Shown here is a 91-nucleotide RNA sequence from Staphylococcus equorum, a member of the family "Fst antitoxin sRNA". About the family: It is located on the opposite strand of SprA1 sRNA. It is annotated as an antitoxin RNA. The organism belongs to Staphylococcus, within Bacteria. Its family is annotated with mRNA binding in the Gene Ontology. The base pairs follow the family's consensus structure, which was predicted with RNAalifold. The sequence is in the family's curated seed alignment.

RNA sequence: UGCGGUAGCGAGGGAAUUUUUUUGGUGUUACUAGUCGCCUAUUUAUCAUUGCGUUUGCGUAGUCAUUUCGCAGAUAAAGCAACGACGCAAC
Numbered sequence: 001u002g003c004g005g006u007a008g009c010g011a012g013g014g015a016a017u018u019u020u021u022u023u024g025g026u027g028u029u030a031c032u033a034g035u036c037g038c039c040u041a042u043u044u045a046u047c048a049u050u051g052c053g054u055u056u057g058c059g060u061a062g063u064c065a066u067u068u069c070g071c072a073g074a075u076a077a078a079g080c081a082a083c084g085a086c087g088c089a090a091c
Stems, first nucleotide, its partner, number of pairs: 008088003027038002030035001049082004054077001057071003